[Rfam]
RNA: Archaeal small subunit ribosomal RNA, nucleotides 529 to 888
RNA sequence: GGCCUAAAGGGGCCGUAGCCGGGCUGGUGUGACCCCUGUGAAAUCCACGGCAAUAAUUCCGUGGGCGUGCAGGGGUUACUACUAGUCUAGGGGACGGAAGAAGCCAAGGGUAUUCCCGGGGGAGUAGCGAAAUGCAGCAAUCCCGGGAAGACCACCCGAGGCGAAGGCGCUUGGCUAUUCCGAUCCCGACGGUGAUGGCCGAAAGCUGGGGGAUCAAAAGGGAUUAGAGACCCCUGUAGUCCCAGCUGUCAACUCUGUGGGCUACCUGCUGGGUGGACUUAGAGUCCACUCAGUGGGGUAGGGAAGCCGUUAAGCCCACCGCCUGGGGAGUACGGCCGCAAGGCUGAAACUUAAAGGAAU
Numbered sequence: 001g002g003c004c005u006a007a008a009g010g011g012g013c014c015g016u017a018g019c020c021g022g023g024c025u026g027g028u029g030u031g032a033c034c035c036c037u038g039u040g041a042a043a044u045c046c047a048c049g050g051c052a053a054u055a056a057u058u059c060c061g062u063g064g065g066c067g068u069g070c071a072g073g074g075g076u077u078a079c080u081a082c083u084a085g086u087c088u089a090g091g092g093g094a095c096g097g098a099a100g101a102a103g104c105c106a107a108g109g110g111u112a113u114u115c116c117c118g119g120g121g122g123a124g125u126a127g128c129g130a131a132a133u134g135c136a137g138c139a140a141u142c143c144c145g146g147g148a149a150g151a152c153c154a155c156c157c158g159a160g161g162c163g164a165a166g167g168c169g170c171u172u173g174g175c176u177a178u179u180c181c182g183a184u185c186c187c188g189a190c191g192g193u194g195a196u197g198g199c200c201g202a203a204a205g206c207u208g209g210g211g212g213a214u215c216a217a218a219a220g221g222g223a224u225u226a227g228a229g230a231c232c233c234c235u236g237u238a239g240u241c242c243c244a245g246c247u248g249u250c251a252a253c254u255c256u257g258u259g260g261g262c263u264a265c266c267u268g269c270u271g272g273g274u275g276g277a278c279u280u281a282g283a284g285u286c287c288a289c290u291c292a293g294u295g296g297g298g299u300a301g302g303g304a305a306g307c308c309g310u311u312a313a314g315c316c317c318a319c320c321g322c323c324u325g326g327g328g329a330g331u332a333c334g335g336c337c338g339c340a341a342g343g344c345u346g347a348a349a350c351u352u353a354a355a356g357g358a359a360u
Stems, first nucleotide, its partner, number of pairs: 001323003009320001011200004016194001018193003022087007031079001032076009045064006052058001091187003095182005102176007109153002113149008124135003161168002205246006215239001219235004257319006265297014301308002325352003334345004